[Rfam]
RNA sequence: UGUAAAUACUCCUUUGUGAGUGAUUUUAGAUAGGCAUAGAGAAAAAUCUUUAGCGAGUCAAUUUCUCUAUGCUUUUAUUAUACA
Dot-bracket structure: ...((((((((......))))).))).....(((((((((((((.................)))))))))))))..........
Background:
The record is an 84-nucleotide sequence from Lactococcus lactis, which matches "ctRNA" in Rfam. Rfam links the family to the GO terms plasmid copy number maintenance and mRNA binding. About the family: Rolling circle replication plasmids contain a number of mechanisms to maintain a low copy number. The literature on the family includes a 1998 paper in FEMS Microbiol Lett by Duan et al., "Involvement of antisense RNA in replication control of the lactococcal plasmid pND324". Lineage of the source: Bacteria > Bacillota > Bacilli > Lactobacillales > Lactococcus.